[Rfam]
RNA sequence: GCUGCCGAGUUUUUUAAUGCAUUUUCUACUGACAUAAACUGAAGUGCCAUUAUUUGGAAACUUUAUUUGUAAAGCGUUCUUUGAUCUCAACGCUGUCUGGCUGGACAUUUGCCAAAGCCCAUGAAUGCCCAACCAGACACUGUUGAGACGAAUAUGGGCUUUAAUUGAACGCUUUACAGAAGAAGUUUAUAAAUACACAUAAAAUGCAUUUCUUUCUUAUAACUCAGGCCAACUGGCAUAGCAAGUAAAACUGUACUGAUCUAAAUGAAAAAUGUUUCUCUUCCUGAUAAUCGCACGUCCUUCUAUGGACAUUAUAUGCCAUUAUCAGUCGAAGAUCGAACGUUUAACCAAUAAUGUUCUUCAGAAUAUUUUUAAGCUUUGUUAUGCCACAGUUUGCAUGUUGCAAUUAAACAUUCUUCACGUGAGAAUUGUUUACAAAUUGUCUCUAAACACAUGUGAACCACAGGCCUCACUUAUCUAAACGAAAUCUGUACUUACUUUCAGAAUGUAAGAUAGUUUUAUCAAUUGAAAAUGCAUUCCAAAUAUGUAUCUC
Numbered sequence: 001g002c003u004g005c006c007g008a009g010u011u012u013u014u015u016a017a018u019g020c021a022u023u024u025u026c027u028a029c030u031g032a033c034a035u036a037a038a039c040u041g042a043a044g045u046g047c048c049a050u051u052a053u054u055u056g057g058a059a060a061c062u063u064u065a066u067u068u069g070u071a072a073a074g075c076g077u078u079c080u081u082u083g084a085u086c087u088c089a090a091c092g093c094u095g096u097c098u099g100g101c102u103g104g105a106c107a108u109u110u111g112c113c114a115a116a117g118c119c120c121a122u123g124a125a126u127g128c129c130c131a132a133c134c135a136g137a138c139a140c141u142g143u144u145g146a147g148a149c150g151a152a153u154a155u156g157g158g159c160u161u162u163a164a165u166u167g168a169a170c171g172c173u174u175u176a177c178a179g180a181a182g183a184a185g186u187u188u189a190u191a192a193a194u195a196c197a198c199a200u201a202a203a204a205u206g207c208a209u210u211u212c213u214u215u216c217u218u219a220u221a222a223c224u225c226a227g228g229c230c231a232a233c234u235g236g237c238a239u240a241g242c243a244a245g246u247a248a249a250a251c252u253g254u255a256c257u258g259a260u261c262u263a264a265a266u267g268a269a270a271a272a273u274g275u276u277u278c279u280c281u282u283c284c285u286g287a288u289a290a291u292c293g294c295a296c297g298u299c300c301u302u303c304u305a306u307g308g309a310c311a312u313u314a315u316a317u318g319c320c321a322u323u324a325u326c327a328g329u330c331g332a333a334g335a336u337c338g339a340a341c342g343u344u345u346a347a348c349c350a351a352u353a354a355u356g357u358u359c360u361u362c363a364g365a366a367u368a369u370u371u372u373u374a375a376g377c378u379u380u381g382u383u384a385u386g387c388c389a390c391a392g393u394u395u396g397c398a399u400g401u402u403g404c405a406a407u408u409a410a411a412c413a414u415u416c417u418u419c420a421c422g423u424g425a426g427a428a429u430u431g432u433u434u435a436c437a438a439a440u441u442g443u444c445u446c447u448a449a450a451c452a453c454a455u456g457u458g459a460a461c462c463a464c465a466g467g468c469c470u471c472a473c474u475u476a477u478c479u480a481a482a483c484g485a486a487a488u489c490u491g492u493a494c495u496u497a498c499u500u501u502c503a504g505a506a507u508g509u510a511a512g513a514u515a516g517u518u519u520u521a522u523c524a525a526u527u528g529a530a531a532a533u534g535c536a537u538u539c540c541a542a543a544u545a546u547g548u549a550u551c552u553c
Stems, first nucleotide, its partner, number of pairs: 001553001004550001006547002009544004016538005024530003028526001030524003060186005066180001068178002071175008083149001085147001087146006094139002097136004104130001106127002109124003202496002205493003208488005214482002217480001222474001224472001228468003234389002237386006243379002252374002263358002270345008279335004284328002287325005392462001395460001397456003407438002411432002413429005
RNA: Bicoid 3'-UTR regulatory element